Overview: Rfam assigns this 153-nucleotide RNA sequence from Photobacterium damselae to the family "FMN riboswitch aptamer (RFN element)". The RFN element is a highly conserved domain that is found frequently in the 5'-untranslated regions of prokaryotic mRNAs that encode for flavin mononucleotide (FMN) biosynthesis and transport proteins.
RNA sequence: ACGAAUUCUCAGGGCGGGGUGAAAUUCCCCACCGGCGGUAAAUAUCUAUUUAGGUAUCAGCCCGCGAGCGCUUAACGAGUUAUUUAGUUAAGGUCAGCAGAUCUGGUGCAAACCCAGAGCCGACGGUUAUAGUCCGGAUGAAAGAGGAUCAGU
Numbered sequence: 001a002c003g004a005a006u007u008c009u010c011a012g013g014g015c016g017g018g019g020u021g022a023a024a025u026u027c028c029c030c031a032c033c034g035g036c037g038g039u040a041a042a043u044a045u046c047u048a049u050u051u052a053g054g055u056a057u058c059a060g061c062c063c064g065c066g067a068g069c070g071c072u073u074a075a076c077g078a079g080u081u082a083u084u085u086a087g088u089u090a091a092g093g094u095c096a097g098c099a100g101a102u103c104u105g106g107u108g109c110a111a112a113c114c115c116a117g118a119g120c121c122g123a124c125g126g127u128u129a130u131a132g133u134c135c136g137g138a139u140g141a142a143a144g145a146g147g148a149u150c151a152g153u
Base pairs, nucleotide, nucleotide: 005149006148007147008146009145010144017029018028019027031133032132033122034121035065036064037063038062060120061119068098069097102118103117104116105115106114124136125135126134